This 101-nucleotide RNA from Paractinoplanes abujensis belongs to the Rfam family "ZMP/ZTP riboswitch aptamer (pfl RNA motif)". Taxonomically the source falls in Paractinoplanes (Bacteria, Bacillati, Actinomycetota, Micromonosporales). A search with the family's covariance model found it, with a score of 40 bits.

[Rfam]
RNA sequence: CCGACGGGCCGUGACUGGCGCGUCAAGGUGGUCAACCAUCGGGGAGCGGCUCCGACGCCGAGCAGAUCGGCGACGACCUGCCGUGCGCCUGGGCCUCUGCA
Numbered sequence: 001c002c003g004a005c006g007g008g009c010c011g012u013g014a015c016u017g018g019c020g021c022g023u024c025a026a027g028g029u030g031g032u033c034a035a036c037c038a039u040c041g042g043g044g045a046g047c048g049g050c051u052c053c054g055a056c057g058c059c060g061a062g063c064a065g066a067u068c069g070g071c072g073a074c075g076a077c078c079u080g081c082c083g084u085g086c087g088c089c090u091g092g093g094c095c096u097c098u099g100c101a
Base pairs, nucleotide, nucleotide: 006052007051008050009049010048011047012046015043016042017089018088019087020086021085028039029038030037031036080094081093082092